[Rfam]
RNA sequence: CGGGAGAACCCUCGUGAAGGAACUCGGCAAAAUGACCCCGUACCCUCGGUACAAGGGGUGCUCCCGGCCACGGGAGCCGCAGAGAAUCGGCUCUGGCGACUGUUUAUCAAAAACACAGGACUCUGCUAACUCGUAAGAGGAUGUAUAGAGUCUGACGCCUGCUCGGUGUCGGUAGGUUAAGGAAGCCAGUUAGCGCAAGCAAAGCCGGCGACCGAAGCCCCGAUAAACGGCGGCCGUAACUAUGACGGUCCUAAGGUAGCGAAGUUCCUUGUCGGGUAAGUUCCGACCUGCAUGAAUGGCGUAACGACCGGAGCACUGUCUCCACGAGGGACCCG
Numbered sequence: 001c002g003g004g005a006g007a008a009c010c011c012u013c014g015u016g017a018a019g020g021a022a023c024u025c026g027g028c029a030a031a032a033u034g035a036c037c038c039c040g041u042a043c044c045c046u047c048g049g050u051a052c053a054a055g056g057g058g059u060g061c062u063c064c065c066g067g068c069c070a071c072g073g074g075a076g077c078c079g080c081a082g083a084g085a086a087u088c089g090g091c092u093c094u095g096g097c098g099a100c101u102g103u104u105u106a107u108c109a110a111a112a113a114c115a116c117a118g119g120a121c122u123c124u125g126c127u128a129a130c131u132c133g134u135a136a137g138a139g140g141a142u143g144u145a146u147a148g149a150g151u152c153u154g155a156c157g158c159c160u161g162c163u164c165g166g167u168g169u170c171g172g173u174a175g176g177u178u179a180a181g182g183a184a185g186c187c188a189g190u191u192a193g194c195g196c197a198a199g200c201a202a203a204g205c206c207g208g209c210g211a212c213c214g215a216a217g218c219c220c221c222g223a224u225a226a227a228c229g230g231c232g233g234c235c236g237u238a239a240c241u242a243u244g245a246c247g248g249u250c251c252u253a254a255g256g257u258a259g260c261g262a263a264g265u266u267c268c269u270u271g272u273c274g275g276g277u278a279a280g281u282u283c284c285g286a287c288c289u290g291c292a293u294g295a296a297u298g299g300c301g302u303a304a305c306g307a308c309c310g311g312a313g314c315a316c317u318g319u320c321u322c323c324a325c326g327a328g329g330g331a332c333c334c335g
Stems, first nucleotide, its partner, number of pairs: 001335004009330008018321003035059005044049001060077007078082001090314007097306002101115003118153008126143001130139003156301004161231003166228002168224005175219003181213002185209003189205002193200002232250006251255001261288001271287006
RNA: Bacterial large subunit ribosomal RNA, nucleotides 1568 to 1902